[Rfam]
RNA sequence: CAAAUAAAUAGAUGCGUACUUCGUAUAUCCUCGAUAAUAUGGUUCGAAAGUUUCUACCGGGGCACCGUAAAUGCCCUGACUAUGAAGGCGGAAUAUCUUUGA
Numbered sequence: 001c002a003a004a005u006a007a008a009u010a011g012a013u014g015c016g017u018a019c020u021u022c023g024u025a026u027a028u029c030c031u032c033g034a035u036a037a038u039a040u041g042g043u044u045c046g047a048a049a050g051u052u053u054c055u056a057c058c059g060g061g062g063c064a065c066c067g068u069a070a071a072u073g074c075c076c077u078g079a080c081u082a083u084g085a086a087g088g089c090g091g092a093a094u095a096u097c098u099u100u101g102a
Stems, first nucleotide, its partner, number of pairs: 019087007031047004058078007